[Rfam]
RNA sequence: UUCUGACCCCGGCCCCUGACUCCCAGCCGUCCGACGCCCUGCCGCACUUCCCCGGCGGCAGGUCGGGACGGAUGGGGAUCAGGAGCCGCGGACAGGACAGC
Numbered sequence: 001u002u003c004u005g006a007c008c009c010c011g012g013c014c015c016c017u018g019a020c021u022c023c024c025a026g027c028c029g030u031c032c033g034a035c036g037c038c039c040u041g042c043c044g045c046a047c048u049u050c051c052c053c054g055g056c057g058g059c060a061g062g063u064c065g066g067g068a069c070g071g072a073u074g075g076g077g078a079u080c081a082g083g084a085g086c087c088g089c090g091g092a093c094a095g096g097a098c099a100g101c
Base pairs, nucleotide, nucleotide: 010088011087012086013085015083016082018080019079021077022076023075024074025073027071028070029069030068031066032065033064034063038062039061040060041059042058043057044056045055
Dot-bracket structure: .........((((.((.((.(((((.((((((((...((((((((.........)))))))))))).)))).))))).)).)).)))).............